[Rfam]
RNA sequence: CCGGUCGGCUUGUUGAGACCGGCGCUGUCGGGGAGGAGCGCCAGGCUGCUUCCAGGCGCCCCUCGUAUCUAUGUUGCUCCACGGAGGAUGUAGCUAUGAGAA
Numbered sequence: 001c002c003g004g005u006c007g008g009c010u011u012g013u014u015g016a017g018a019c020c021g022g023c024g025c026u027g028u029c030g031g032g033g034a035g036g037a038g039c040g041c042c043a044g045g046c047u048g049c050u051u052c053c054a055g056g057c058g059c060c061c062c063u064c065g066u067a068u069c070u071a072u073g074u075u076g077c078u079c080c081a082c083g084g085a086g087g088a089u090g091u092a093g094c095u096a097u098g099a100g101a102a
Stems, first nucleotide, its partner, number of pairs: 001022006009015001036061001038059005044053002062100006069093007077086003
RNA: Repression of heat shock gene expression (ROSE) element
Organism: Methylovirgula sp. 4M-Z18